[Rfam]
Iron response element I: a 35-nucleotide RNA from Phyllostomus discolor. For this family Rfam cites "Ferritin L and H subunits are differentially regulated on a post-transcriptional level" (Sammarco et al., J Biol Chem, 2008). Lineage of the source: Eukaryota > Metazoa > Deuterostomia > Eutheria > Phyllostomus.
RNA sequence: CUGUCUCUGACUUCAACAGGGUUUGGAUGGAACAG
Number, nucleotide and partner (000 for none) at each position: 001c035002u034003g033004u032005c000006u031007c030008u029009g000010a028011c000012u027013u026014c025015a024016a023017c021018a000019g000020g000021g017022u000023u016024u015025g014026g013027a012028u010029g008030g007031a006032a004033c003034a002035g001